[Rfam]
A member of the RNA family "Betaproteobacteria toxic small RNA", 64 nucleotides long. Pairs were carried over by alignment from the consensus structure, which was predicted with WAR. A search with the family's covariance model found it, with a score of 59 bits.
Nucleotides: 064
Stems, first nucleotide, its partner, number of pairs: 008027007034057008
Number, partner (000 for none) and nucleotide at each position: 001000u002000g003000u004000c005000u006000c007000c008027u009026c010025c011024a012023u013022c014021c015000c016000u017000c018000a019000c020000a021014g022013g023012g024011u025010g026009g027008a028000u029000u030000u031000a032000c033000a034057g035056g036055c037054c038053c039052a040051g041050a042000c043000c044000g045000c046000a047000a048000g049000g050041u051040c052039u053038g054037g055036g056035c057034c058000u059000u060000u061000u062000u063000u064000c